RNA sequence: CCACUUCCGGAACGAAGUGACCUCAACUGCACGUGCGUCGCAAGUAACUGCGGGGUGCGAAGCUGCGGAUAAACAUUCUGCGCAAGGGCUACAAGCCCAUGCGGCCAAGCAGUCCGUGAGGAUUGCCCAGGCGACAUAAACAAGACUGUCGGGAAUGC
Numbered sequence: 001c002c003a004c005u006u007c008c009g010g011a012a013c014g015a016a017g018u019g020a021c022c023u024c025a026a027c028u029g030c031a032c033g034u035g036c037g038u039c040g041c042a043a044g045u046a047a048c049u050g051c052g053g054g055g056u057g058c059g060a061a062g063c064u065g066c067g068g069a070u071a072a073a074c075a076u077u078c079u080g081c082g083c084a085a086g087g088g089c090u091a092c093a094a095g096c097c098c099a100u101g102c103g104g105c106c107a108a109g110c111a112g113u114c115c116g117u118g119a120g121g122a123u124u125g126c127c128c129a130g131g132c133g134a135c136a137u138a139a140a141c142a143a144g145a146c147u148g149u150c151g152g153g154a155a156u157g158c
Stems, first nucleotide, its partner, number of pairs: 002019006027068005032059005038053005082102003086098004103128002106125001114121002132151005
Dot-bracket structure: .((((((......)))))).......((((((((((.(((((......))))).)))))....))))).............(((.((((.....)))).)))((.(.......((....))...).))...(((((..........))))).......
The family of this 158-nucleotide sequence from Polaromonas sp. OV174 is "Group II catalytic intron D1-D4-7". Lineage of the source: Bacteria > Pseudomonadota > Betaproteobacteria > Burkholderiales > Polaromonas. Gene Ontology term of the family: Group II intron splicing.